[Rfam]
Shown here is a 132-nucleotide RNA sequence from Spinacia oleracea, a member of the family "U11 spliceosomal RNA". Taxonomically the source falls in Spinacia (Eukaryota, Tracheophyta, Mesangiospermae, Anserineae). The literature on the family includes a 1988 paper in Proc Natl Acad Sci U S A by Montzka and Steitz, "Additional low-abundance human small nuclear ribonucleoproteins: U11, U12, etc". Rfam classes the family as a spliceosomal small nuclear RNA.
RNA sequence: UAAAAGGGUCGGUUGGCUAAAUAUGCCAUGCUCGACUUGAGAUAAGGCGAGUGCUGUAUGGCUAUCAAGACAUAUGGCCGACAUAAUUUGUGGAAACUCUUAUAGGGUUGGCUCGCUUGGCCGACCCUCUUG
Numbered sequence: 001u002a003a004a005a006g007g008g009u010c011g012g013u014u015g016g017c018u019a020a021a022u023a024u025g026c027c028a029u030g031c032u033c034g035a036c037u038u039g040a041g042a043u044a045a046g047g048c049g050a051g052u053g054c055u056g057u058a059u060g061g062c063u064a065u066c067a068a069g070a071c072a073u074a075u076g077g078c079c080g081a082c083a084u085a086a087u088u089u090g091u092g093g094a095a096a097c098u099c100u101u102a103u104a105g106g107g108u109u110g111g112c113u114c115g116c117u118u119g120g121c122c123g124a125c126c127c128u129c130u131u132g
Base pairs, nucleotide, nucleotide: 008082009081010080011079012078014028015027016026017025029053030052031051032050033049034048036046037045038044054077055076056075057074058073059072060071102130104128105127106126107125108124109123110122111121112120113119